A member of the RNA family "Purine riboswitch aptamer" from Clostridium uliginosum, 96 nucleotides long. The family's consensus secondary structure is taken from published work. It scores 58 bits against the family's covariance model.
[Rfam]
RNA sequence: UAUAACUAAUAUAUUUUAACUUAUAUAAGUUCAUAAUAGGUUGAACGUUUCUACCAACUACCAUAAUAGUUGAUUAUAAGUUAAUCCUUUUAACGG
Dot-bracket structure: .................((((((((...(((((........)))))........((((((......))))))..))))))))..............
Numbered sequence: 001u002a003u004a005a006c007u008a009a010u011a012u013a014u015u016u017u018a019a020c021u022u023a024u025a026u027a028a029g030u031u032c033a034u035a036a037u038a039g040g041u042u043g044a045a046c047g048u049u050u051c052u053a054c055c056a057a058c059u060a061c062c063a064u065a066a067u068a069g070u071u072g073a074u075u076a077u078a079a080g081u082u083a084a085u086c087c088u089u090u091u092a093a094c095g096g
Stems, first nucleotide, its partner, number of pairs: 018082008029046005055072006